[Rfam]
RNA: Bacterial RNase P class A
Organism: Parascardovia denticolens
RNA sequence: CGAGACCUCUUGAUGGCCGCGGUCCCAUGGACUGAGGAACUUCCGGGCUCCACAGAGCACGAUAGCGGAUAACGUCCGCCCAGGGCGACCUGAGAGAUAGCGCAACAGAAAGCAAACCGCUUCCCCCCGCCUUUUCAAAAAGCGGGCGAGUAAGGGUGAAAGGGUGGUGUAAGAGACCACCGGGUUGGCGGUAACGUCAACCGCAUGGCAAGCCUUAUCGGGAGCAAGGCCAAGCAGAAGACGUUCGAGGGUUGCUCGCCCGAGUCUUCGGGUAGGCCGCUGGAGCUUAGCGGCGACGUUGAGUCGAGAUGGAUGGCCAUCCCUCUUCGGAGGACAGAACCCGGGGUAUAAGAGGUCUCACCCC
Numbered sequence: 001c002g003a004g005a006c007c008u009c010u011u012g013a014u015g016g017c018c019g020c021g022g023u024c025c026c027a028u029g030g031a032c033u034g035a036g037g038a039a040c041u042u043c044c045g046g047g048c049u050c051c052a053c054a055g056a057g058c059a060c061g062a063u064a065g066c067g068g069a070u071a072a073c074g075u076c077c078g079c080c081c082a083g084g085g086c087g088a089c090c091u092g093a094g095a096g097a098u099a100g101c102g103c104a105a106c107a108g109a110a111a112g113c114a115a116a117c118c119g120c121u122u123c124c125c126c127c128c129g130c131c132u133u134u135u136c137a138a139a140a141a142g143c144g145g146g147c148g149a150g151u152a153a154g155g156g157u158g159a160a161a162g163g164g165u166g167g168u169g170u171a172a173g174a175g176a177c178c179a180c181c182g183g184g185u186u187g188g189c190g191g192u193a194a195c196g197u198c199a200a201c202c203g204c205a206u207g208g209c210a211a212g213c214c215u216u217a218u219c220g221g222g223a224g225c226a227a228g229g230c231c232a233a234g235c236a237g238a239a240g241a242c243g244u245u246c247g248a249g250g251g252u253u254g255c256u257c258g259c260c261c262g263a264g265u266c267u268u269c270g271g272g273u274a275g276g277c278c279g280c281u282g283g284a285g286c287u288u289a290g291c292g293g294c295g296a297c298g299u300u301g302a303g304u305c306g307a308g309a310u311g312g313a314u315g316g317c318c319a320u321c322c323c324u325c326u327u328c329g330g331a332g333g334a335c336a337g338a339a340c341c342c343g344g345g346g347u348a349u350a351a352g353a354g355g356u357c358u359c360a361c362c363c364c
Stems, first nucleotide, its partner, number of pairs: 002359009012321007020034006039347003043344005048224004055257004060220005065079005080094001081092004095215002100213002102209002117155002119151004124146003163181006182204001183202008228278004237269006249261004285304008